[Rfam]
RNA: wcaG RNA
RNA sequence: UCAAGUCACGGAUGGACUUUAACAGCACUGGUCGGGAUGGGUUUCACGACCCCUCGGGUUUCUUGCUUCCUAAAAGCAAGUGGUGCGGGUGAAG
Numbered sequence: 001u002c003a004a005g006u007c008a009c010g011g012a013u014g015g016a017c018u019u020u021a022a023c024a025g026c027a028c029u030g031g032u033c034g035g036g037a038u039g040g041g042u043u044u045c046a047c048g049a050c051c052c053c054u055c056g057g058g059u060u061u062c063u064u065g066c067u068u069c070c071u072a073a074a075a076g077c078a079a080g081u082g083g084u085g086c087g088g089g090u091g092a093a094g
Base pairs, nucleotide, nucleotide: 011026013024014023039052040051041050042049056071057070058069062080063079064078065077066076067075